RNA sequence: AUCACUUCUCGGCCUUUUGGCUAAGAUCAAGUGUAGUAUCUGUUCUUAUCAGUUCUAGGAUACAUGUGCAGAAUGUGCAAGUUUGUUACAUAGAUAUACAUGUGCCAUGGUGGUUGGCUGCACCCAUCAACAAUCAUCUAAGUUUUAAGCCCCGCAUGCAUUGGGUAUUUGUCCUAAU
Numbered sequence: 001a002u003c004a005c006u007u008c009u010c011g012g013c014c015u016u017u018u019g020g021c022u023a024a025g026a027u028c029a030a031g032u033g034u035a036g037u038a039u040c041u042g043u044u045c046u047u048a049u050c051a052g053u054u055c056u057a058g059g060a061u062a063c064a065u066g067u068g069c070a071g072a073a074u075g076u077g078c079a080a081g082u083u084u085g086u087u088a089c090a091u092a093g094a095u096a097u098a099c100a101u102g103u104g105c106c107a108u109g110g111u112g113g114u115u116g117g118c119u120g121c122a123c124c125c126a127u128c129a130a131c132a133a134u135c136a137u138c139u140a141a142g143u144u145u146u147a148a149g150c151c152c153c154g155c156a157u158g159c160a161u162u163g164g165g166u167a168u169u170u171g172u173c174c175u176a177a178u
Stems, first nucleotide, its partner, number of pairs: 007026003011022004047062004065079006109128005115122002131171003136166001138163001140161001142159002
U2 spliceosomal RNA: a 178-nucleotide sequence from Pongo abelii. U2 is a small nuclear RNA (snRNA) component of the spliceosome (involved in pre-mRNA splicing). Taxonomically the source falls in Pongo (Eukaryota, Eumetazoa, Bilateria, Theria). Rfam 15.1 lists 71,512 matches to the family in 2,642 species.